Rfam assigns this 305-nucleotide sequence from Cocos nucifera to the family "Plant signal recognition particle RNA". Taxonomically the source falls in Cocos (Eukaryota, Tracheophyta, Petrosaviidae, Attaleinae). For this family Rfam cites "Towards the structure of the mammalian signal recognition particle" (Wild et al., Curr Opin Struct Biol, 2002). The family is grouped with related families in Rfam's "SRP clan". Gene Ontology terms of the family: signal recognition particle, endoplasmic reticulum targeting and SRP-dependent cotranslational protein targeting to membrane, signal sequence recognition. The family's consensus secondary structure is taken from published work. It is annotated as a non-coding RNA gene.
RNA sequence: GCCGAGCUCAUUCGCGAGAGCUUUUAACUCGAGUGGGGGCAAUGGGUGAUUCGGACGCUUGGUUAUGCUUGUGAGCCUGGGUCUAGAUGGGGCUAUGGCUGGCUCGCCCGUUCUAAGUUGGGUAGUGAGACGCGCGGCCUGGGUGAAAGCUUGGAUCGCGUUUCUCCUAAAGUGGAGGGGACCGCAUGAGGCUAGCUUCAUAGAGCAGCGAAUACCUCCCAGUCUCAAUGGUGGAAGGAUAACGGGCCGCCGCACCAUGUACCCUCCGUGGCCCACAGGCAAACCAUCAGCAGACAACCAUCUUU
Numbered sequence: 001g002c003c004g005a006g007c008u009c010a011u012u013c014g015c016g017a018g019a020g021c022u023u024u025u026a027a028c029u030c031g032a033g034u035g036g037g038g039g040c041a042a043u044g045g046g047u048g049a050u051u052c053g054g055a056c057g058c059u060u061g062g063u064u065a066u067g068c069u070u071g072u073g074a075g076c077c078u079g080g081g082u083c084u085a086g087a088u089g090g091g092g093c094u095a096u097g098g099c100u101g102g103c104u105c106g107c108c109c110g111u112u113c114u115a116a117g118u119u120g121g122g123u124a125g126u127g128a129g130a131c132g133c134g135c136g137g138c139c140u141g142g143g144u145g146a147a148a149g150c151u152u153g154g155a156u157c158g159c160g161u162u163u164c165u166c167c168u169a170a171a172g173u174g175g176a177g178g179g180g181a182c183c184g185c186a187u188g189a190g191g192c193u194a195g196c197u198u199c200a201u202a203g204a205g206c207a208g209c210g211a212a213u214a215c216c217u218c219c220c221a222g223u224c225u226c227a228a229u230g231g232u233g234g235a236a237g238g239a240u241a242a243c244g245g246g247c248c249g250c251c252g253c254a255c256c257a258u259g260u261a262c263c264c265u266c267c268g269u270g271g272c273c274c275a276c277a278g279g280c281a282a283a284c285c286a287u288c289a290g291c292a293g294a295c296a297a298c299c300a301u302c303u304u305u
Stems, first nucleotide, its partner, number of pairs: 001040003004023006011016001028037003042305001044303005050297002053295001057291003061285004068279006075272003079264004084259002089255001091253001093252001100249007108238002111236005117229006127166004132161006139154006167172001174219005185210001187208001192203003